[Rfam]
RNA: ASpks TB sRNA
Organism: Actinokineospora bangkokensis
RNA sequence: CUUCACCGACCCCAGCCACAGCGGCUCGCCCGCCCGGUCGCGGCCGUAGGUCGCCAGCAGCGCCUGGGCCUC
Numbered sequence: 001c002u003u004c005a006c007c008g009a010c011c012c013c014a015g016c017c018a019c020a021g022c023g024g025c026u027c028g029c030c031c032g033c034c035c036g037g038u039c040g041c042g043g044c045c046g047u048a049g050g051u052c053g054c055c056a057g058c059a060g061c062g063c064c065u066g067g068g069c070c071u072c
Base pairs, nucleotide, nucleotide: 014026015025016024017023031068033066035062036061042055044053046051
Dot-bracket structure: .............((((.....))))....(.(.((.....(.(.(....).).).....))...).)....